[Rfam]
RNA sequence: AGAGUCCCGCGCAGUGAAGGAAUAGCAAACCACACUGGCCCCGAGUCAUGCGUACUGCAUCGCGAGGUGCAGGAUGAAGCGUUGACAGGGGAGUCUGUAGGCCAGCCAUUGAGCCGCGAAAGCGAUAAAUCAGUUCAGGGAGCCGACGCCGUUAGCGUGGUGGAAGGCAACAUCGACGGGCGCGAUAGUGCGAGUGCCUGCUCGGCCCUGCGUGGUCUUAGAACC
Dot-bracket structure: ...........(((((..((..[.[[...)).))))).((((..(((((((((.(((((((....))))))).)))...)).)))).))))...................(.((((((.................(((((.(((..((((........))))...)))....(.(.(((((((......]].]))))))).).).))))))))))))........
The record is a 225-nucleotide RNA sequence from Acidisarcina polymorpha, which matches "Group II catalytic intron D1-D4-6" in Rfam. The match comes from Rfam's covariance-model search (178 bits).